[Rfam]
RNA sequence: GUGUCGGUGAGAUAUGUUUGAUAUUCUUGGUUGUUCUGUUUCGUAUCACCCGAGAAUCAAACAUAUUCCACAUCGACCU
Numbered sequence: 001g002u003g004u005c006g007g008u009g010a011g012a013u014a015u016g017u018u019u020g021a022u023a024u025u026c027u028u029g030g031u032u033g034u035u036c037u038g039u040u041u042c043g044u045a046u047c048a049c050c051c052g053a054g055a056a057u058c059a060a061a062c063a064u065a066u067u068c069c070a071c072a073u074c075g076a077c078c079u
Stems, first nucleotide, its partner, number of pairs: 005075005011067012024054002029051002032048002
Dot-bracket structure: ....(((((.((((((((((((.((...((.((.............)).)).)).))))))))))))...)))))....